[Rfam]
RNA sequence: AUUUAAGUUUUCUAGGGUUCCGAAGUUUUUAACUUGCAGGUCCGAGAGAAAACGCACAGUUAAUUGUGUACACGGAAGGAAAAAAGCCUGGGAGAU
Numbered sequence: 001a002u003u004u005a006a007g008u009u010u011u012c013u014a015g016g017g018u019u020c021c022g023a024a025g026u027u028u029u030u031a032a033c034u035u036g037c038a039g040g041u042c043c044g045a046g047a048g049a050a051a052a053c054g055c056a057c058a059g060u061u062a063a064u065u066g067u068g069u070a071c072a073c074g075g076a077a078g079g080a081a082a083a084a085a086g087c088c089u090g091g092g093a094g095a096u
Base pairs, nucleotide, nucleotide: 007053008052009051010050011049012048015043016042020040021039022037023035024034025033026032027031054069055068056067057066058065059064071091073094077089078088079087

The family of this 96-nucleotide RNA from Romboutsia sp. CE17 is "Guanidine-I riboswitch aptamer". Its family is annotated with regulation of gene expression in the Gene Ontology. The source organism's lineage runs through Bacteria, Bacillati, Clostridia, Peptostreptococcales and Romboutsia.